[Rfam]
RNA sequence: GCAGCAAUGAUGAUUGGCGCAGGGGUACGGACCUCAGCUAGAUCAUGGGAGCUGAUUGUGAGCUAUCUGCGUUCCAGCUUCGCUGGCAUGUGGCUGGCUUCCUGGAAACGGGCUUGCAAGAGAAUUUCGCCUUACACUGAGCUGC
Numbered sequence: 001g002c003a004g005c006a007a008u009g010a011u012g013a014u015u016g017g018c019g020c021a022g023g024g025g026u027a028c029g030g031a032c033c034u035c036a037g038c039u040a041g042a043u044c045a046u047g048g049g050a051g052c053u054g055a056u057u058g059u060g061a062g063c064u065a066u067c068u069g070c071g072u073u074c075c076a077g078c079u080u081c082g083c084u085g086g087c088a089u090g091u092g093g094c095u096g097g098c099u100u101c102c103u104g105g106a107a108a109c110g111g112g113c114u115u116g117c118a119a120g121a122g123a124a125u126u127u128c129g130c131c132u133u134a135c136a137c138u139g140a141g142c143u144g145c
Stems, first nucleotide, its partner, number of pairs: 001145005
Shown here is a 145-nucleotide RNA from Podarcis muralis, a member of the family "Small nucleolar RNA SNORD94". The match comes from Rfam's covariance-model search (118 bits). The family's consensus secondary structure was predicted with RNAalifold. Taxonomically the source falls in Podarcis (Eukaryota, Gnathostomata, Dipnotetrapodomorpha, Episquamata). The literature on the family includes a 2002 paper in Mol Cell Biol by Galardi et al., "Purified box C/D snoRNPs are able to reproduce site-specific 2'-O-methylation of target RNA in vitro".